[Rfam]
RNA sequence: GGACUCGUGAUGAGCUGUUUCCUGAGCAAGUUGAAGUGAAGCGCAAUGUGCAUCCUCUGAAGUCC
Dot-bracket structure: (((((......(((....(...((.((.............)).))....)....)))...)))))
Numbered sequence: 001g002g003a004c005u006c007g008u009g010a011u012g013a014g015c016u017g018u019u020u021c022c023u024g025a026g027c028a029a030g031u032u033g034a035a036g037u038g039a040a041g042c043g044c045a046a047u048g049u050g051c052a053u054c055c056u057c058u059g060a061a062g063u064c065c
Stems, first nucleotide, its partner, number of pairs: 001065005012057003019050001023045002026042002